[Rfam]
RNA sequence: CAUGCUCCUAGAGGGGCUGCAGGUGCGGCUGCCAUGUCUCACAUGUGUGUCAGGAGCGGCAGAGAGGAGAAAAGCCAUGUCUCUGCUCAGUGUCCAGACCUAGGAAUAGCUGAGUGAUUAGUAGCCUAACAAG
Number, nucleotide and partner (000 for none) at each position: 001c000002a000003u061004g060005c059006u058007c000008c056009u055010a000011g000012a000013g051014g050015g000016g000017c000018u000019g048020c047021a046022g000023g000024u041025g040026c000027g038028g037029c036030u000031g000032c000033c000034a000035u000036g029037u028038c027039u000040c025041a024042c000043a000044u000045g000046u021047g020048u019049g000050u014051c013052a000053g000054g000055a009056g008057c000058g006059g005060c004061a003062g000063a000064g000065a000066g000067g000068a000069g130070a000071a000072a127073a000074g125075c124076c000077a122078u121079g000080u000081c000082u000083c000084u116085g115086c000087u113088c112089a111090g110091u108092g107093u106094c000095c104096a000097g000098a000099c000100c000101u000102a000103g000104g095105a000106a093107u092108a091109g000110c090111u089112g088113a087114g000115u085116g084117a000118u000119u000120a000121g078122u077123a000124g075125c074126c000127u072128a000129a000130c069131a000132a000133g000
Description: This 133-nucleotide sequence from Rattus norvegicus belongs to the Rfam family "Small nucleolar RNA SNORA17". The family is grouped with related families in Rfam's "SNORA17 clan". Gene Ontology terms of the family: nucleolus and RNA processing. About the family: snoRNA ACA 17 belongs to the H/ACA family of snoRNAs and is predicted to guide pseudouridylation of the 28S rRNA at positions U4659 and U4598. It shares the same host gene together with ACA43. The family's RNA type in Rfam is H/ACA-box small nucleolar RNA. The literature on the family includes a 1997 paper in J Mol Biol by Ofengand and Bakin, "Mapping to nucleotide resolution of pseudouridine residues in large subunit ribosomal RNAs from representative eukaryotes, prokaryotes, archaebacteria, mitochondria and chloroplasts". The base pairs follow the family's consensus structure, which was predicted with RNAalifold.